Rfam assigns this 78-nucleotide RNA from Schistosoma margrebowiei to the family "mir-3492 microRNA precursor family". The family has 2 seed sequences and 21,496 matches in Rfam 15.1. A search with the family's covariance model found it, with a score of 46 bits. Rfam links the family to the GO terms miRNA-mediated post-transcriptional gene silencing and RISC complex. The family's consensus secondary structure was predicted with RNAalifold.
RNA sequence: AGCUUUUCGAAUCCGUGCUGAGAUUUCGUCCGAUACCAACCCAUUAGGGCUGAUCAGACUUCCAAAAUAAGUGAUAUC
Numbered sequence: 001a002g003c004u005u006u007u008c009g010a011a012u013c014c015g016u017g018c019u020g021a022g023a024u025u026u027c028g029u030c031c032g033a034u035a036c037c038a039a040c041c042c043a044u045u046a047g048g049g050c051u052g053a054u055c056a057g058a059c060u061u062c063c064a065a066a067a068u069a070a071g072u073g074a075u076a077u078c
Stems, first nucleotide, its partner, number of pairs: 002077001005074002008071001011068002016064002020061003024058003028054003